[Rfam]
RNA sequence: CCACUAUUGACGAAUGGUGGUAGCAAAACUUGGUCUGAAGAACCAGCAGAUGUAGUCUAGAAUGCAUCUGUGACUUAAAGGCUAUAUUAAAGAGUUGAAACCUGUGCU
Numbered sequence: 001c002c003a004c005u006a007u008u009g010a011c012g013a014a015u016g017g018u019g020g021u022a023g024c025a026a027a028a029c030u031u032g033g034u035c036u037g038a039a040g041a042a043c044c045a046g047c048a049g050a051u052g053u054a055g056u057c058u059a060g061a062a063u064g065c066a067u068c069u070g071u072g073a074c075u076u077a078a079a080g081g082c083u084a085u086a087u088u089a090a091a092g093a094g095u096u097g098a099a100a101c102c103u104g105u106g107c108u
Base pairs, nucleotide, nucleotide: 001020003018004017005016006015007014008013021084022083023082024081031045032044033043034042046071047070048069049068050067051066052065053064054063056061
RNA: RAGATH-34 RNA